Rfam assigns this 111-nucleotide RNA sequence from Geodia barretti to the family "Group II catalytic intron D1-D4-2". Taxonomically the source falls in Geodia (Eukaryota, Opisthokonta, Heteroscleromorpha, Astrophorina). Pairs were carried over by alignment from the consensus structure.
RNA sequence: GAGGCAGGCCUCGGAGCCGCCCGGCAGAGGAGGCUCCAACCGCCGUGCGCUGCUUCGGUCAAGAGCCGAGGUGGUAAGCGUCACGGAACGCGCGGCGCGACCGCGUCAGGU
Number, nucleotide and partner (000 for none) at each position: 001g012002a011003g010004g009005c000006a000007g000008g000009c004010c003011u002012c001013g037014g036015a035016g034017c033018c032019g000020c000021c030022c029023g000024g000025c000026a000027g000028a000029g022030g021031a000032g018033g017034c016035u015036c014037c013038a000039a000040c000041c110042g000043c086044c085045g084046u083047g082048c000049g075050c074051u000052g072053c071054u070055u000056c068057g067058g066059u065060c000061a000062a000063g000064a000065g059066c058067c057068g056069a000070g054071g053072u052073g000074g050075u049076a000077a000078g000079c000080g000081u000082c047083a046084c045085g044086g043087a000088a000089c000090g106091c105092g104093c103094g102095g000096c000097g000098c000099g000100a000101c000102c094103g093104c092105g091106u090107c000108a000109g000110g041111u000

About the family: Group II introns are found in rRNA, tRNA and mRNA of organelles in fungi, plants and protists, and also in mRNA in bacteria.